[Rfam]
RNA sequence: UAUUCAGGGGUUGAUCGGACCUGUGCUGGUUUCUACCGCGGUGAUAUUUCUGAGUUGUAACUAUCACCGGGUAAAAAUUUGGCACAGGCCCGGUCUUCCCUU
Numbered sequence: 001u002a003u004u005c006a007g008g009g010g011u012u013g014a015u016c017g018g019a020c021c022u023g024u025g026c027u028g029g030u031u032u033c034u035a036c037c038g039c040g041g042u043g044a045u046a047u048u049u050c051u052g053a054g055u056u057g058u059a060a061c062u063a064u065c066a067c068c069g070g071g072u073a074a075a076a077a078u079u080u081g082g083c084a085c086a087g088g089c090c091c092g093g094u095c096u097u098c099c100c101u102u
Base pairs, nucleotide, nucleotide: 016092017091018090020088021087022086024084025083026082027081028080029078030077031076032075034073035072036071037070039069041067042066043065044064045063046062
mir-36 microRNA precursor family: a 102-nucleotide RNA sequence from Caenorhabditis brenneri. On this family, see Ohler et al., RNA 2004: "Patterns of flanking sequence conservation and a characteristic upstream motif for microRNA gene identification". A search with the family's covariance model found it, with a score of 71 bits. Clan: mir-36 clan. Rfam 15.1 lists 199 matches to the family in 31 species. The base pairs follow the family's consensus structure, which was predicted with WAR.